[Rfam]
RNA sequence: AAUGCACACAAACCCCAAGGUCAUUAUAGAAAUGUGUAAUGCUCUUGCUAUGUGUGCAGAAAGGAAGAGCACCUUGUCGCCUUUCAUGGGCUGCUGUGCUUAUGAAAGUGAAUUCAGGGUGCCACACUA
Number, nucleotide and partner (000 for none) at each position: 001a000002a000003u058004g057005c056006a055007c054008a053009c052010a000011a000012a000013c000014c000015c000016c000017a000018a000019g044020g043021u000022c041023a040024u039025u038026a037027u036028a035029g000030a000031a000032a000033u000034g000035u028036g027037u026038a025039a024040u023041g022042c000043u020044c019045u000046u000047g000048c000049u000050a000051u000052g009053u008054g007055u006056g005057c004058a003059g000060a000061a000062a000063g000064g000065a000066a000067g000068a000069g122070c121071a120072c119073c118074u117075u116076g000077u000078c000079g000080c000081c108082u107083u106084u105085c104086a103087u102088g101089g100090g099091c098092u000093g000094c000095u000096g000097u000098g091099c090100u089101u088102a087103u086104g085105a084106a083107a082108g081109u000110g000111a000112a000113u000114u000115c000116a075117g074118g073119g072120u071121g070122c069123c000124a000125c000126a000127c000128u000129a000

The family of this 129-nucleotide RNA from Lepisosteus oculatus is "Small nucleolar RNA SNORA68". U68 is a member of the H/ACA class of small nucleolar RNAs (snoRNAs) which act as guides in the the modification of uridines to pseudouridines. The literature on the family includes a 1997 paper in Genes Dev by Ganot et al., "The family of box ACA small nucleolar RNAs is defined by an evolutionarily conserved secondary structure and ubiquitous sequence elements essential for RNA accumulation". The family's RNA type in Rfam is H/ACA-box small nucleolar RNA. Pairs were carried over by alignment from the consensus structure, which was predicted with PFOLD. The organism belongs to Lepisosteus, within Eukaryota.